The record is a 135-nucleotide RNA from Gossypium schwendimanii, which matches "MIR8643 microRNA precursor family" in Rfam.

[Rfam]
RNA sequence: AUGUCUUUUAACUUAUUAAAAAGUCGAAUUGGCAGUGAAGAAAGAAGUAGGAAGUCGAAAGCCAUCAUUGCCUAUAAUCAAAACCCAUAAACCCGUACCAUGAUUCUUUCUUCACUGCCAAUUCGACUUCCUGAU
Numbered sequence: 001a002u003g004u005c006u007u008u009u010a011a012c013u014u015a016u017u018a019a020a021a022a023g024u025c026g027a028a029u030u031g032g033c034a035g036u037g038a039a040g041a042a043a044g045a046a047g048u049a050g051g052a053a054g055u056c057g058a059a060a061g062c063c064a065u066c067a068u069u070g071c072c073u074a075u076a077a078u079c080a081a082a083a084c085c086c087a088u089a090a091a092c093c094c095g096u097a098c099c100a101u102g103a104u105u106c107u108u109u110c111u112u113c114a115c116u117g118c119c120a121a122u123u124c125g126a127c128u129u130c131c132u133g134a135u
Stems, first nucleotide, its partner, number of pairs: 015135004021129011033117014048102002051099001056095002
The base pairs follow the family's consensus structure, which was predicted with RNAalifold. The organism belongs to Gossypium, within Eukaryota. A search with the family's covariance model found it, with a score of 143 bits.